[Rfam]
RNA: int-alpA RNA
Organism: Acidithiobacillus ferrianus
Nucleotides: 071
Stems, first nucleotide, its partner, number of pairs: 001055008011022004028045005035071005
Number, partner (000 for none) and nucleotide at each position: 001055c002054c003053a004052u005051g006050c007049u008048c009000u010000a011022g012021c013020u014019c015000g016000a017000c018000g019014g020013a021012g022011c023000g024000a025000a026000a027000g028045g029044c030043c031042g032041g033000a034000a035071c036070c037069u038068u039067c040000a041032c042031c043030g044029g045028c046000u047000u048008g049007a050006g051005c052004a053003u054002g055001g056000c057000a058000c059000c060000u061000a062000u063000u064000c065000c066000c067039g068038a069037a070036g071035g